The family of this 111-nucleotide RNA from Tropicibacter naphthalenivorans is "TPP riboswitch aptamer (THI element)". NCBI's taxonomy places the organism under Bacteria, Pseudomonadati, Alphaproteobacteria, Roseobacteraceae, Tropicibacter. From the family's description: Vitamin B(1) in its active form thiamin pyrophosphate (TPP) is an essential coenzyme that is synthesised by coupling of pyrimidine and thiazole moieties in bacteria. A search with the family's covariance model found it, with a score of 71 bits.
[Rfam]
RNA sequence: CCCAGUGCCUCGGGGUGCUGAGAGACAACUCAGCUGAGAUUUGCGUACCCGCAUCAACCCGUUGAACCUGAACCGGUUAAAACCGGCGGAGGGAAGGUGCAGCGCCCCGUC
Numbered sequence: 001c002c003c004a005g006u007g008c009c010u011c012g013g014g015g016u017g018c019u020g021a022g023a024g025a026c027a028a029c030u031c032a033g034c035u036g037a038g039a040u041u042u043g044c045g046u047a048c049c050c051g052c053a054u055c056a057a058c059c060c061g062u063u064g065a066a067c068c069u070g071a072a073c074c075g076g077u078u079a080a081a082a083c084c085g086g087c088g089g090a091g092g093g094a095a096g097g098u099g100c101a102g103c104g105c106c107c108c109g110u111c
Base pairs, nucleotide, nucleotide: 006099007098008097009096010095011061012060013059014058017034018033019032020031021030042053043052044051045050067092068091069090073086074085075084076083